[Rfam]
RNA: MIR7504 microRNA precursor family
Organism: Gossypium trilobum
RNA sequence: AAUAGGAGAAUGACAAAUCAGAUUUUUCCUCUUGAAUUUGAAUAAUUUUUCAAGAGGAAAAAUCUGAAAAUAAGGAGGAAAAAUCUGAUUUGUCAUUCUCCUAUU
Numbered sequence: 001a002a003u004a005g006g007a008g009a010a011u012g013a014c015a016a017a018u019c020a021g022a023u024u025u026u027u028c029c030u031c032u033u034g035a036a037u038u039u040g041a042a043u044a045a046u047u048u049u050u051c052a053a054g055a056g057g058a059a060a061a062a063u064c065u066g067a068a069a070a071u072a073a074g075g076a077g078g079a080a081a082a083a084u085c086u087g088a089u090u091u092g093u094c095a096u097u098c099u100c101c102u103a104u105u
Stems, first nucleotide, its partner, number of pairs: 001105027029077005035071001037069003041065001046060005
Dot-bracket structure: (((((((((((((((((((((((((((.(((((.(.(((.(....(((((.....)))))....).))).).))))).)))))))))))))))))))))))))))